[Rfam]
RNA sequence: CCCCCAUGAGGAAAACCCCACGCGUCCGACCCCCCCCGUGCUGCGCCAGCGCCUGUGAAAGGCUGAACCCACUGGUGACGGCGGGAGGAAAGGGGGACACCGCGUCCAGAGGGGACGGUCUGAGGGGG
Numbered sequence: 001c002c003c004c005c006a007u008g009a010g011g012a013a014a015a016c017c018c019c020a021c022g023c024g025u026c027c028g029a030c031c032c033c034c035c036c037c038g039u040g041c042u043g044c045g046c047c048a049g050c051g052c053c054u055g056u057g058a059a060a061g062g063c064u065g066a067a068c069c070c071a072c073u074g075g076u077g078a079c080g081g082c083g084g085g086a087g088g089a090a091a092g093g094g095g096g097a098c099a100c101c102g103c104g105u106c107c108a109g110a111g112g113g114g115a116c117g118g119u120c121u122g123a124g125g126g127g128g
Stems, first nucleotide, its partner, number of pairs: 001127004
Annotation:
The record is a 128-nucleotide RNA sequence from Cuculus canorus, which matches "Small nucleolar RNA SNORD22" in Rfam. It is annotated as a C/D-box small nucleolar RNA. The literature on the family includes a 1994 paper in Science by Tycowski et al., "Requirement for intron-encoded U22 small nucleolar RNA in 18S ribosomal RNA maturation".